[Rfam]
RNA: tRNA
RNA sequence: GCCCCCGUAGUCCAACGGCAGAGACAGGCGACUUAAAAUCGUUACAGGUGUGGGUUCGAAUCCCACCGGGGGCA
Numbered sequence: 001g002c003c004c005c006c007g008u009a010g011u012c013c014a015a016c017g018g019c020a021g022a023g024a025c026a027g028g029c030g031a032c033u034u035a036a037a038a039u040c041g042u043u044a045c046a047g048g049u050g051u052g053g054g055u056u057c058g059a060a061u062c063c064c065a066c067c068g069g070g071g072g073c074a
Stems, first nucleotide, its partner, number of pairs: 001073007010025003027043005050066005